[Rfam]
RNA: Small nucleolar RNA Z43
RNA sequence: GACAGAUGAUGAAUCCAUGUAAGGUCUCGUUCGUCUGAGUGAAAAGCUCUCGCGCUUUUCCUGACGACAACGAUUUAUAUCACCACCCAUAGACUGAUGUC
Numbered sequence: 001g002a003c004a005g006a007u008g009a010u011g012a013a014u015c016c017a018u019g020u021a022a023g024g025u026c027u028c029g030u031u032c033g034u035c036u037g038a039g040u041g042a043a044a045a046g047c048u049c050u051c052g053c054g055c056u057u058u059u060c061c062u063g064a065c066g067a068c069a070a071c072g073a074u075u076u077a078u079a080u081c082a083c084c085a086c087c088c089a090u091a092g093a094c095u096g097a098u099g100u101c
Stems, first nucleotide, its partner, number of pairs: 001101004044062001046057001